[Rfam]
RNA sequence: ACAAAGGCCCUUUUCAGGGCCACCCCAUUGCUCACGGGAAGAGCUG
Number, nucleotide and partner (000 for none) at each position: 001a000002c000003a000004a000005a000006g021007g020008c019009c018010c017011u016012u000013u000014u000015c000016a011017g010018g009019g008020c007021c006022a000023c000024c000025c000026c000027a000028u000029u000030g000031c000032u000033c000034a000035c000036g000037g000038g000039a000040a000041g000042a000043g000044c000045u000046g000
Histone 3' UTR stem-loop: a 46-nucleotide RNA from Xiphorhynchus elegans.
The base pairs follow the family's consensus structure, which is taken from published work.
A search with the family's covariance model found it, with a score of 35 bits.